[Rfam]
RNA sequence: UGCGGAGCGCGUGUUUCAGCACGAUGUUGCGAAAGCUCACCCCCUUGAGGCGCGCGGUGCGGAUGUAUUGCGCGGUCAUCACCUCGGCCAUGGAGGCGCGGGUCAUCCGCGCGAUGUAGCCCAUGCCGUAAAGCGCGAUCGUGGCGACCGGCAGGGCGAAGUUCCAGAAGGUGAUAUUC
Numbered sequence: 001u002g003c004g005g006a007g008c009g010c011g012u013g014u015u016u017c018a019g020c021a022c023g024a025u026g027u028u029g030c031g032a033a034a035g036c037u038c039a040c041c042c043c044c045u046u047g048a049g050g051c052g053c054g055c056g057g058u059g060c061g062g063a064u065g066u067a068u069u070g071c072g073c074g075g076u077c078a079u080c081a082c083c084u085c086g087g088c089c090a091u092g093g094a095g096g097c098g099c100g101g102g103u104c105a106u107c108c109g110c111g112c113g114a115u116g117u118a119g120c121c122c123a124u125g126c127c128g129u130a131a132a133g134c135g136c137g138a139u140c141g142u143g144g145c146g147a148c149c150g151g152c153a154g155g156g157c158g159a160a161g162u163u164c165c166a167g168a169a170g171g172u173g174a175u176a177u178u179c
Base pairs, nucleotide, nucleotide: 005140006139008137009136010135011134012133014131015130016128019126020125021124028123029122031120038113040111042109046105047104048103051100052099053098054097055075057073058072059071060070061069062068082096083095084094085093146178147177151172152171154165155164156163